[Rfam]
RNA: sodF sRNA
RNA sequence: ACGUCCUGCUCGUGAUCGUCUUCUCACCUUCACCUGCAGGCGGCACAAGGAAGGGCCUCCGGCCGGGACGACCCGGCCGGAGGCCCUC
Numbered sequence: 001a002c003g004u005c006c007u008g009c010u011c012g013u014g015a016u017c018g019u020c021u022u023c024u025c026a027c028c029u030u031c032a033c034c035u036g037c038a039g040g041c042g043g044c045a046c047a048a049g050g051a052a053g054g055g056c057c058u059c060c061g062g063c064c065g066g067g068a069c070g071a072c073c074c075g076g077c078c079g080g081a082g083g084c085c086c087u088c
Stems, first nucleotide, its partner, number of pairs: 002042002005040005012033004018027002052087015